RNA: MIR159 microRNA precursor family
RNA sequence: AAUGGUUUAAGAGAGCUCUCUUCAGUCCACUCAUGGGCGGGCGAAGGUUUUGAAUUAUCUGCCGACUCAUUCAUUCAAACACACUAGAAAAGGGAGCAUUAAAGAUAGCUGCUAUUGUGAAUGUGUGAAUGAUGCGGGAGAUAAAUUUCAUACUUCUCUUCUCUGUGCUUGGACUGAAGGGAGCUCCCUUUAGCUGUAUC
Numbered sequence: 001a002a003u004g005g006u007u008u009a010a011g012a013g014a015g016c017u018c019u020c021u022u023c024a025g026u027c028c029a030c031u032c033a034u035g036g037g038c039g040g041g042c043g044a045a046g047g048u049u050u051u052g053a054a055u056u057a058u059c060u061g062c063c064g065a066c067u068c069a070u071u072c073a074u075u076c077a078a079a080c081a082c083a084c085u086a087g088a089a090a091a092g093g094g095a096g097c098a099u100u101a102a103a104g105a106u107a108g109c110u111g112c113u114a115u116u117g118u119g120a121a122u123g124u125g126u127g128a129a130u131g132a133u134g135c136g137g138g139a140g141a142u143a144a145a146u147u148u149c150a151u152a153c154u155u156c157u158c159u160u161c162u163c164u165g166u167g168c169u170u171g172g173a174c175u176g177a178a179g180g181g182a183g184c185u186c187c188c189u190u191u192a193g194c195u196g197u198a199u200c
Stems, first nucleotide, its partner, number of pairs: 013186008023176007036163001059140002062137003068131004076123001